[Rfam]
RNA sequence: UGGGCAGUAUCAUUUAGAACUGCACCUGUAAGAAAAUCGAUGUGAUAAGUAUAAUCUGCCUAGAUCCAUUAUGGACCAGGACAGAGGG
Number, nucleotide and partner (000 for none) at each position: 001u000002g026003g025004g023005c022006a021007g020008u019009a000010u018011c017012a000013u000014u000015u000016a000017g011018a010019a008020c007021u006022g005023c004024a000025c003026c002027u000028g000029u000030a000031a000032g000033a000034a000035a000036a000037u000038c000039g000040a000041u000042g000043u000044g000045a000046u000047a000048a000049g000050u000051a000052u000053a000054a000055u000056c084057u083058g082059c080060c079061u078062a000063g076064a000065u075066c074067c073068a000069u000070u000071a000072u000073g067074g066075a065076c063077c000078a061079g060080g059081a000082c058083a057084g056085a000086g000087g000088g000
pan motif: an 88-nucleotide RNA from Cytobacillus horneckiae. NCBI's taxonomy places the organism under Bacteria, Bacillati, Bacillota, Caryophanales, Cytobacillus. The family's consensus secondary structure is taken from published work.